[Rfam]
RNA: Small nucleolar RNA SNORD79
Organism: Echinops telfairi
RNA sequence: UGCUGUUGAUGAUGACUAUAAAUGAUGGGAAUCUCUCUGAAAGAAAAUGAAGACUUAAUAUUGGAAACUGAAACAGUA
Numbered sequence: 001u002g003c004u005g006u007u008g009a010u011g012a013u014g015a016c017u018a019u020a021a022a023u024g025a026u027g028g029g030a031a032u033c034u035c036u037c038u039g040a041a042a043g044a045a046a047a048u049g050a051a052g053a054c055u056u057a058a059u060a061u062u063g064g065a066a067a068c069u070g071a072a073a074c075a076g077u078a
Base pairs, nucleotide, nucleotide: 001078002077003076004075005074006073007072